[Rfam]
Shown here is a 108-nucleotide RNA sequence from Clostridium gasigenes, a member of the family "SAM riboswitch aptamer (S box leader)".

RNA sequence: AUUUUAUUAAGAAUGGUGGAGGGACUGGCCCUGUGAAGCCGAGCAACAACUAAUAAUCAUUUAUUAGAAUUGUGCUAAAUCCUGCAGGUUCGUCCUGAAAAAUGAAGG
Numbered sequence: 001a002u003u004u005u006a007u008u009a010a011g012a013a014u015g016g017u018g019g020a021g022g023g024a025c026u027g028g029c030c031c032u033g034u035g036a037a038g039c040c041g042a043g044c045a046a047c048a049a050c051u052a053a054u055a056a057u058c059a060u061u062u063a064u065u066a067g068a069a070u071u072g073u074g075c076u077a078a079a080u081c082c083u084g085c086a087g088g089u090u091c092g093u094c095c096u097g098a099a100a101a102a103u104g105a106a107g108g
Base pairs, nucleotide, nucleotide: 002107003106004105005104006103007102008101015040016039017038021031022030023029025084027082028081042076043075044074045073047072048071050067051066052065053064054063080100085097086096087095088094
Gene Ontology term of the family: regulation of gene expression.